[Rfam]
RNA sequence: CAUGCGGGCGCUCAUUCUCGUAGUGGUUAGCAGGCGCAUCGGCACCGUGGGGUAAAACCCCGCGCGAUUGCGGAUGCGCCGAACACAAGGUCCCAAACGGGGCCUUUUUUAUUGCCUUUU
Numbered sequence: 001c002a003u004g005c006g007g008g009c010g011c012u013c014a015u016u017c018u019c020g021u022a023g024u025g026g027u028u029a030g031c032a033g034g035c036g037c038a039u040c041g042g043c044a045c046c047g048u049g050g051g052g053u054a055a056a057a058c059c060c061c062g063c064g065c066g067a068u069u070g071c072g073g074a075u076g077c078g079c080c081g082a083a084c085a086c087a088a089g090g091u092c093c094c095a096a097a098c099g100g101g102g103c104c105u106u107u108u109u110u111a112u113u114g115c116c117u118u119u120u
Stems, first nucleotide, its partner, number of pairs: 007028001009026001030115003033080008042071001047063006085106001088105007
RNA: Rhizobiales sRNA Atu_C8
Organism: Devosia sp. MC521